[Rfam]
RNA sequence: GCAUGGCCCUUGAUGAUUCAAUUCACGCAUAGUUCAUCUGCAGCGGGCUUACUCCCCGCGUUGAGGAAACAUCAAUAUCGAAUGUCUUUCGCUCCUAUCUGAGGCCCUUU
Numbered sequence: 001g002c003a004u005g006g007c008c009c010u011u012g013a014u015g016a017u018u019c020a021a022u023u024c025a026c027g028c029a030u031a032g033u034u035c036a037u038c039u040g041c042a043g044c045g046g047g048c049u050u051a052c053u054c055c056c057c058g059c060g061u062u063g064a065g066g067a068a069a070c071a072u073c074a075a076u077a078u079c080g081a082a083u084g085u086c087u088u089u090c091g092c093u094c095c096u097a098u099c100u101g102a103g104g105c106c107c108u109u110u
Base pairs, nucleotide, nucleotide: 005106006105007104008103
Notes: The record is a 110-nucleotide RNA from Chlorella variabilis, which matches "Small nucleolar RNA snR60/Z15/Z230/Z193/J17" in Rfam. On this family, see Lowe and Eddy, Science 1999: "A computational screen for methylation guide snoRNAs in yeast".